[Rfam]
RNA: Acido-Lenti-1 RNA
Organism: Roseimaritima ulvae
RNA sequence: CCUGGGGCUCGCGCCCCAGGCUUUAUGCGAUCGCCGCUACGCGGCU
Numbered sequence: 001c002c003u004g005g006g007g008c009u010c011g012c013g014c015c016c017c018a019g020g021c022u023u024u025a026u027g028c029g030a031u032c033g034c035c036g037c038u039a040c041g042c043g044g045c046u
Stems, first nucleotide, its partner, number of pairs: 001020008033045005